[Rfam]
The record is a 79-nucleotide sequence from Platysternon megacephalum, which matches "mir-16 microRNA precursor family" in Rfam. A search with the family's covariance model found it, with a score of 39 bits. Clan: mir-15 clan.

RNA sequence: GCUGCCAGCAGCAGCACAGAAGUAAGGGUGGCAUGGUAUUGUAUUGCCACCCUUACUUCUGUGCUGCUGCCUGGAGAGC
Numbered sequence: 001g002c003u004g005c006c007a008g009c010a011g012c013a014g015c016a017c018a019g020a021a022g023u024a025a026g027g028g029u030g031g032c033a034u035g036g037u038a039u040u041g042u043a044u045u046g047c048c049a050c051c052c053u054u055a056c057u058u059c060u061g062u063g064c065u066g067c068u069g070c071c072u073g074g075a076g077a078g079c
Stems, first nucleotide, its partner, number of pairs: 001079003005074003010068008019058001021057008